[Rfam]
RNA: mir-184 microRNA precursor family
RNA sequence: CCAGUCACAUCCCCUUAUCACUUUUCCAGCCAGCUUUGAGAUGCUAAGUGUUGGACGGAGAACUGAUAAGGGUAGGUGACUGA
Numbered sequence: 001c002c003a004g005u006c007a008c009a010u011c012c013c014c015u016u017a018u019c020a021c022u023u024u025u026c027c028a029g030c031c032a033g034c035u036u037u038g039a040g041a042u043g044c045u046a047a048g049u050g051u052u053g054g055a056c057g058g059a060g061a062a063c064u065g066a067u068a069a070g071g072g073u074a075g076g077u078g079a080c081u082g083a
Base pairs, nucleotide, nucleotide: 012072013071014070015069016068017067018066019065020064022062023061024060025059026058027057030054031053